[Rfam]
The family of this 134-nucleotide RNA from Cynara cardunculus is "MIR390 microRNA precursor family". The family has 16 seed sequences and 649 matches in Rfam 15.1. Lineage of the source: Eukaryota > asterids > campanulids > Asteraceae > Cynara cardunculus subsp. cardunculus. The match comes from Rfam's covariance-model search (94 bits). Gene Ontology terms of the family: miRNA-mediated post-transcriptional gene silencing and RISC complex. On this family, see Gustafson et al., Nucleic Acids Res 2005: "ASRP: the Arabidopsis Small RNA Project Database".

RNA sequence: UGAAAGAAUCUGUAAAGCUCAGGAGGGAUAGCGCCAUCCACAUCUAUAUACAUAUCCACAUCUAUAUAUAUAUAUAUAAUAUUAUUUAUAAUGUUUUGUGGCGCUAUCUAUCCUGAGCCUCACGGCUUCUUCCU
Number, nucleotide and partner (000 for none) at each position: 001u000002g000003a000004a000005a000006g000007a000008a000009u000010c125011u000012g000013u000014a000015a000016a000017g118018c117019u116020c115021a114022g113023g112024a111025g000026g109027g108028a107029u106030a105031g104032c103033g102034c101035c100036a099037u098038c000039c000040a000041c000042a000043u000044c000045u000046a000047u000048a000049u000050a000051c000052a000053u000054a000055u000056c000057c000058a000059c000060a000061u000062c000063u000064a000065u000066a000067u000068a000069u000070a000071u000072a000073u000074a000075u000076a000077u000078a000079a000080u000081a000082u000083u000084a000085u000086u000087u000088a000089u000090a000091a000092u000093g000094u000095u000096u000097u000098g037099u036100g035101g034102c033103g032104c031105u030106a029107u028108c027109u026110a000111u024112c023113c022114u021115g020116a019117g018118c017119c000120u000121c000122a000123c000124g000125g010126c000127u000128u000129c000130u000131u000132c000133c000134u000